RNA sequence: AGCCGUGCGGUGAGCACAGAGCGAACUAUUCUUUCGCCUUUUACUAAAGAAUACCGUGUGCUCGCCGCUUAUAGCGGCAUACGCCUAUUUUUGGGGGCCUAUUUCCUUUUCUGGAAUUU
Dot-bracket structure: ..((((.(((((((((((........((((((((...........))))))))...)))))))))))......)))).................(.....(((((.......))))).)
Rfam assigns this 119-nucleotide sequence from Gossypium anomalum to the family "U5 spliceosomal RNA".
The base pairs follow the family's consensus structure, which is taken from published work.
Its family is annotated with spliceosomal tri-snRNP complex assembly and U5 snRNP in the Gene Ontology.